[Rfam]
RNA sequence: GUGCCGUGAUGUUAUCAUCAACACAUCAUUCUGAAGAAAAGUGUGUGAUGACUUCCUGUGACUGAGCACA
Number, nucleotide and partner (000 for none) at each position: 001g069002u068003g067004c066005c000006g000007u000008g000009a000010u000011g000012u000013u000014a000015u000016c000017a000018u000019c000020a000021a000022c000023a000024c000025a000026u000027c000028a000029u000030u000031c000032u000033g000034a000035a000036g000037a000038a000039a000040a000041g000042u000043g000044u000045g000046u000047g000048a000049u000050g000051a000052c000053u000054u000055c000056c000057u000058g000059u000060g000061a000062c000063u000064g000065a000066g004067c003068a002069c001070a000